[Rfam]
RNA sequence: GUACUUAAAGGCAAUGGUGAGCUGCCUAUUUGAACCGCCCUAAAAAGCUGAUGACGCCUACUCAGAU
Dot-bracket structure: .........((((..[[[[...))))..........((........))......]]]].........
RNA: Fluoride riboswitch aptamer (crcB RNA motif)
Organism: Mucilaginibacter agri